[Rfam]
RNA: Small nucleolar RNA SNORA25
Organism: Diceros bicornis
RNA sequence: GGGUCUUUUCAAAGAUGGCCUAUGGAGCUGUGAAACCAGGAGCUCUGAAUGCUAUGACCAAAGACUGAUGUUCUCCAUAGAAUGCCACAGUCACUUAACAGGCUAUGUGUUCCUGAGGAGAUGUAGCC
Numbered sequence: 001g002g003g004u005c006u007u008u009u010c011a012a013a014g015a016u017g018g019c020c021u022a023u024g025g026a027g028c029u030g031u032g033a034a035a036c037c038a039g040g041a042g043c044u045c046u047g048a049a050u051g052c053u054a055u056g057a058c059c060a061a062a063g064a065c066u067g068a069u070g071u072u073c074u075c076c077a078u079a080g081a082a083u084g085c086c087a088c089a090g091u092c093a094c095u096u097a098a099c100a101g102g103c104u105a106u107g108u109g110u111u112c113c114u115g116a117g118g119a120g121a122u123g124u125a126g127c128c
Stems, first nucleotide, its partner, number of pairs: 002059004007054001015046001017044003021040001023039001027036001072121005079114002082111001087106001089104002092102001094101002